[Rfam]
RNA sequence: AACACAUUUUAAAUGAAGUCCUGUGAGGCUUCGAAGGGUGUAAGCAGCGGUUUGUAACAGGUGAAGUAUAGCUUCACCUCGUUUUCAAGCACCCUUCUACUUAAUGAAGGGUGCUUUUUUGCU
Numbered sequence: 001a002a003c004a005c006a007u008u009u010u011a012a013a014u015g016a017a018g019u020c021c022u023g024u025g026a027g028g029c030u031u032c033g034a035a036g037g038g039u040g041u042a043a044g045c046a047g048c049g050g051u052u053u054g055u056a057a058c059a060g061g062u063g064a065a066g067u068a069u070a071g072c073u074u075c076a077c078c079u080c081g082u083u084u085u086c087a088a089g090c091a092c093c094c095u096u097c098u099a100c101u102u103a104a105u106g107a108a109g110g111g112u113g114c115u116u117u118u119u120u121g122c123u
Base pairs, nucleotide, nucleotide: 005037007035008034009033015032016031017030018029019028020027054084056082059079060078061077062076063075064074065073066072067071087116088115089114090113091112092111093110094109095108096107097106
The record is a 123-nucleotide RNA sequence from Bacillus solimangrovi, which matches "PyrR binding site" in Rfam. Gene Ontology terms of the family: pyrimidine nucleobase biosynthetic process and pyrimidine nucleobase transport. Rfam classes the family as a cis-regulatory element. A search with the family's covariance model found it, with a score of 59 bits. A reference for the family is Bonner et al. (2001), "Molecular recognition of pyr mRNA by the Bacillus subtilis attenuation regulatory protein PyrR", Nucleic Acids Res. Rfam describes the family as follows. This family represents the PyrR binding site and terminator structure. This RNA structure is found upstream of a variety of genes involved in pyrimidine biosynthesis and transport.